Record summary:
A member of the RNA family "Bacillus-plasmid RNA" from Levilactobacillus brevis, 61 nucleotides long. Lineage of the source: Bacteria > Bacillati > Bacillota > Lactobacillaceae > Levilactobacillus brevis. The family's consensus secondary structure is taken from published work.
[Rfam]
RNA sequence: GCUGUCAAUGGUAGCGGACGAGCAAAGCGUGGGAGCAUAAGGAAUUGACAGCUCUAAACCA
Numbered sequence: 001g002c003u004g005u006c007a008a009u010g011g012u013a014g015c016g017g018a019c020g021a022g023c024a025a026a027g028c029g030u031g032g033g034a035g036c037a038u039a040a041g042g043a044a045u046u047g048a049c050a051g052c053u054c055u056a057a058a059c060c061a
Base pairs, nucleotide, nucleotide: 001052002051003050004049005048006047007046008045009044
By type it is a small RNA.